Rfam assigns this 129-nucleotide RNA from Betta splendens to the family "Small nucleolar RNA SNORA63". For this family Rfam cites "Three small nucleolar RNAs that are involved in ribosomal RNA precursor processing" (Mishra and Eliceiri, Proc Natl Acad Sci U S A, 1997). A search with the family's covariance model found it, with a score of 91 bits. The organism belongs to Betta, within Eukaryota. About the family: E3 belongs to the H/ACA class of snoRNAs and is involved in the processing of eukaryotic pre-rRNA and has regions of complementarity to 18S rRNA. E3 is encoded in introns in the gene for protein synthesis initiation factor 4AII.

RNA sequence: AUGCAGGAUUUCUACAGUGCAGCUUGUGUGGUGCUGUGUUGUCGUUCCCCCUGCAAACAGUAACUUGUUUCCUCGCUAUCCCUGGCUGUCAACAUCAAUUGACUGCCAGGGACGUAAGGUCUCAAACAC
Numbered sequence: 001a002u003g004c005a006g007g008a009u010u011u012c013u014a015c016a017g018u019g020c021a022g023c024u025u026g027u028g029u030g031g032u033g034c035u036g037u038g039u040u041g042u043c044g045u046u047c048c049c050c051c052u053g054c055a056a057a058c059a060g061u062a063a064c065u066u067g068u069u070u071c072c073u074c075g076c077u078a079u080c081c082c083u084g085g086c087u088g089u090c091a092a093c094a095u096c097a098a099u100u101g102a103c104u105g106c107c108a109g110g111g112a113c114g115u116a117a118g119g120u121c122u123c124a125a126a127c128a129c
Stems, first nucleotide, its partner, number of pairs: 003054005014042010081110004086105001088103002